[Rfam]
RNA sequence: GUAACAUCUGAUCUUUGUCUAAGGUCAAGUUUAACAUGUGUUCUUAUCAGUUAAAUAUCUUUUACAUCCUUGACUUGAAGAUGUCAUAUAAAACAGAUUUUUGGGACCAAAAGAUGGGUUAGAACUUUUUUUAUCUGUCCUAUGCACCUGGCUGUUACUGCAGUGUCUCUAGAAGCAGCACACCGA
Numbered sequence: 001g002u003a004a005c006a007u008c009u010g011a012u013c014u015u016u017g018u019c020u021a022a023g024g025u026c027a028a029g030u031u032u033a034a035c036a037u038g039u040g041u042u043c044u045u046a047u048c049a050g051u052u053a054a055a056u057a058u059c060u061u062u063u064a065c066a067u068c069c070u071u072g073a074c075u076u077g078a079a080g081a082u083g084u085c086a087u088a089u090a091a092a093a094c095a096g097a098u099u100u101u102u103g104g105g106a107c108c109a110a111a112a113g114a115u116g117g118g119u120u121a122g123a124a125c126u127u128u129u130u131u132u133a134u135c136u137g138u139c140c141u142a143u144g145c146a147c148c149u150g151g152c153u154g155u156u157a158c159u160g161c162a163g164u165g166u167c168u169c170u171a172g173a174a175g176c177a178g179c180a181c182a183c184c185g186a
Base pairs, nucleotide, nucleotide: 005024007022010019011018012017045064046063049060050059066082067081068080070078071077072076111141113139114138115137116136117135118134121132122131123130124129144179145178148175149174152172153171154170
RNA: U2 spliceosomal RNA
Organism: Balearica regulorum